[Rfam]
RNA sequence: UACUUUUGCACUCGAAUACGAAAAACGUAUUUAUACAUAAUAAUCAUUUAAAUAAUAUUGGAAUG
Numbered sequence: 001u002a003c004u005u006u007u008g009c010a011c012u013c014g015a016a017u018a019c020g021a022a023a024a025a026c027g028u029a030u031u032u033a034u035a036c037a038u039a040a041u042a043a044u045c046a047u048u049u050a051a052a053u054a055a056u057a058u059u060g061g062a063a064u065g
Base pairs, nucleotide, nucleotide: 014032015031016030017029018028019027
The record is a 65-nucleotide sequence, which matches "S15-Flavobacteria ribosomal protein leader" in Rfam.
It is annotated as a cis-regulatory leader.
The family is grouped with related families in Rfam's "Ribosomal Protein S15 Leader clan".